Rfam assigns this 139-nucleotide RNA from Turnera subulata to the family "Small nucleolar RNA snoR77".
The source organism's lineage runs through Eukaryota, Streptophytina, Spermatophyta, Gunneridae and Turnera.
On this family, see Marker et al., Curr Biol 2002: "Experimental RNomics: identification of 140 candidates for small non-messenger RNAs in the plant Arabidopsis thaliana".
Its family is annotated with nucleolus and RNA processing in the Gene Ontology.
[Rfam]
RNA sequence: AGGCAGCCUGUUUGCCAAUAAUCGAUAUGGCAUAAAAGGUGUUUAAUUGCUCGUACAUCAAGUGUCUUUCGCUCUUUAGCUGAGAUUUUUCUAGCUGAGAUUCGUCAUCGAAGCUGGGCAGUCUUAGCUUAAGAACAUU
Numbered sequence: 001a002g003g004c005a006g007c008c009u010g011u012u013u014g015c016c017a018a019u020a021a022u023c024g025a026u027a028u029g030g031c032a033u034a035a036a037a038g039g040u041g042u043u044u045a046a047u048u049g050c051u052c053g054u055a056c057a058u059c060a061a062g063u064g065u066c067u068u069u070c071g072c073u074c075u076u077u078a079g080c081u082g083a084g085a086u087u088u089u090u091c092u093a094g095c096u097g098a099g100a101u102u103c104g105u106c107a108u109c110g111a112a113g114c115u116g117g118g119c120a121g122u123c124u125u126a127g128c129u130u131a132a133g134a135a136c137a138u139u
Base pairs, nucleotide, nucleotide: 002043003042004041005040007039008038009036011034013032014031015030016029017028066133067132068131071128072127073126079114080113081112084106085105086104